A member of the RNA family "epsC RNA" from Oceanobacillus zhaokaii, 115 nucleotides long. The family's consensus secondary structure is taken from published work.
[Rfam]
RNA sequence: UGGUGAUGUCUACUUACCUUUAUCCAUGUAGACACUCGGUCAUGCUGUGGGUAUUGCAGAUACCUUAGACACGUACGUUGUCGAGAGUGUGAUGUGAGGAUGGGUUAGAUGCCCA
Numbered sequence: 001u002g003g004u005g006a007u008g009u010c011u012a013c014u015u016a017c018c019u020u021u022a023u024c025c026a027u028g029u030a031g032a033c034a035c036u037c038g039g040u041c042a043u044g045c046u047g048u049g050g051g052u053a054u055u056g057c058a059g060a061u062a063c064c065u066u067a068g069a070c071a072c073g074u075a076c077g078u079u080g081u082c083g084a085g086a087g088u089g090u091g092a093u094g095u096g097a098g099g100a101u102g103g104g105u106u107a108g109a110u111g112c113c114c115a
Stems, first nucleotide, its partner, number of pairs: 002018003007034007035098004039093008049065006068082004101115005